[Rfam]
Source information:
This 58-nucleotide RNA sequence from Malus domestica belongs to the Rfam family "Plastid-ccsA-ndhD-1 3UTR RNA". The base pairs follow the family's consensus structure, which was predicted with LocARNA. The literature on the family includes a 2023 paper in Plant Commun by Richter et al., "Retrograde signaling in plants: A critical review focusing on the GUN pathway and beyond". Plastid-ccsA-ndhD-1 is a non-coding RNA (ncRNA) recognised in plastids. It was found in the three prime untranslated region (3UTR) of ccsA and ndhD genes, its 3UTR location suggests a role in transcript maturation. Lineage of the source: Eukaryota > Tracheophyta > eudicotyledons > Rosaceae > Malus. By type it is a cis-regulatory element.

RNA sequence: CAACAAUCAAGAACCAUUUGAAUCAUUUCCAUUACUUGAUUCAAAUGGUUCUCACAAA
Numbered sequence: 001c002a003a004c005a006a007u008c009a010a011g012a013a014c015c016a017u018u019u020g021a022a023u024c025a026u027u028u029c030c031a032u033u034a035c036u037u038g039a040u041u042c043a044a045a046u047g048g049u050u051c052u053c054a055c056a057a058a
Stems, first nucleotide, its partner, number of pairs: 010052016